The record is a 57-nucleotide sequence from Photobacterium lipolyticum, which matches "Pseudomonas sRNA P26" in Rfam. Pairs were carried over by alignment from the consensus structure, which was predicted with RNAalifold. From the family's description: This small RNA (sRNA) was computationally identified in the genome of the opportunistic pathogen Pseudomonas aeruginosa and its expression verified by northern blot analysis.

RNA sequence: UUACUUAAUUUCUUAGCCUGUAAAGGCUAAUGGCUGGUGGCUGAAUGCCACCGGCCU
Numbered sequence: 001u002u003a004c005u006u007a008a009u010u011u012c013u014u015a016g017c018c019u020g021u022a023a024a025g026g027c028u029a030a031u032g033g034c035u036g037g038u039g040g041c042u043g044a045a046u047g048c049c050a051c052c053g054g055c056c057u
Stems, first nucleotide, its partner, number of pairs: 014029005032056010